[Rfam]
RNA sequence: CAGCGGACUCAAUCGGAUUGAGCCUAGGUAUGGAAACGUAUCAAGUGGCAACUCCCAGAUUCAGGGAAACCUGGGAUUAUUCAGCAGGCAAUCCUGAGCCAAAUCCCGUUCCACGUUGUGGAGUAGUGAUCAGAUCGCUAAAAAAGCGGGAUAGGUACAGAGACUCGAAGGGGGUUAUUCUAGCGGGCGAACUAUUAAUAACUAGUUUUCAAAUAUUGAAAUGUUCGAUGUGGUUGGCCGCAUGAGGUAAAGCAGAUAGAAAGAUUGAAGUGGAGUUGGGAAAAAGGAUUUCAGUCUUCGGAAGCAAGCUCAUUUUAAUGAGCUUAAAAAAAAGCAGUCAUACGCGGAAUCGGGCCAAUAUUCAGUCUCAAAAGCACUAAGUAUACCUACUAUCUCAUAUUGGUGCCGCCAGUUCUGACAUCUCCCCCCCACCCGUCCUACCUAAGAUCUCAUCACAUUUCUACGACUACUCUUCCCCCCUCAACGGAUGAACCGGCAACAAAUCUAAUUUUUUUUUUUCGCGAAUAAAGGUAGAGCCCCAUUCUACAAAGUUACCUAUAA
Numbered sequence: 001c002a003g004c005g006g007a008c009u010c011a012a013u014c015g016g017a018u019u020g021a022g023c024c025u026a027g028g029u030a031u032g033g034a035a036a037c038g039u040a041u042c043a044a045g046u047g048g049c050a051a052c053u054c055c056c057a058g059a060u061u062c063a064g065g066g067a068a069a070c071c072u073g074g075g076a077u078u079a080u081u082c083a084g085c086a087g088g089c090a091a092u093c094c095u096g097a098g099c100c101a102a103a104u105c106c107c108g109u110u111c112c113a114c115g116u117u118g119u120g121g122a123g124u125a126g127u128g129a130u131c132a133g134a135u136c137g138c139u140a141a142a143a144a145a146g147c148g149g150g151a152u153a154g155g156u157a158c159a160g161a162g163a164c165u166c167g168a169a170g171g172g173g174g175u176u177a178u179u180c181u182a183g184c185g186g187g188c189g190a191a192c193u194a195u196u197a198a199u200a201a202c203u204a205g206u207u208u209u210c211a212a213a214u215a216u217u218g219a220a221a222u223g224u225u226c227g228a229u230g231u232g233g234u235u236g237g238c239c240g241c242a243u244g245a246g247g248u249a250a251a252g253c254a255g256a257u258a259g260a261a262a263g264a265u266u267g268a269a270g271u272g273g274a275g276u277u278g279g280g281a282a283a284a285a286g287g288a289u290u291u292c293a294g295u296c297u298u299c300g301g302a303a304g305c306a307a308g309c310u311c312a313u314u315u316u317a318a319u320g321a322g323c324u325u326a327a328a329a330a331a332a333a334g335c336a337g338u339c340a341u342a343c344g345c346g347g348a349a350u351c352g353g354g355c356c357a358a359u360a361u362u363c364a365g366u367c368u369c370a371a372a373a374g375c376a377c378u379a380a381g382u383a384u385a386c387c388u389a390c391u392a393u394c395u396c397a398u399a400u401u402g403g404u405g406c407c408g409c410c411a412g413u414u415c416u417g418a419c420a421u422c423u424c425c426c427c428c429c430c431a432c433c434c435g436u437c438c439u440a441c442c443u444a445a446g447a448u449c450u451c452a453u454c455a456c457a458u459u460u461c462u463a464c465g466a467c468u469a470c471u472c473u474u475c476c477c478c479c480c481u482c483a484a485c486g487g488a489u490g491a492a493c494c495g496g497c498a499a500c501a502a503a504u505c506u507a508a509u510u511u512u513u514u515u516u517u518u519u520c521g522c523g524a525a526u527a528a529a530g531g532u533a534g535a536g537c538c539c540c541a542u543u544c545u546a547c548a549a550a551g552u553u554a555c556c557u558a559u560a561a
Base pairs, nucleotide, nucleotide: 005025006024008022009021010020011019012018013017029040030039031038050176051175052174053173054172056170061097062096063095064094065093066092070088071087072086073085098156099155104150105149106148110144160539162538164536165535166534178525179524180523183520185518186517546559548557
RNA: Group I catalytic intron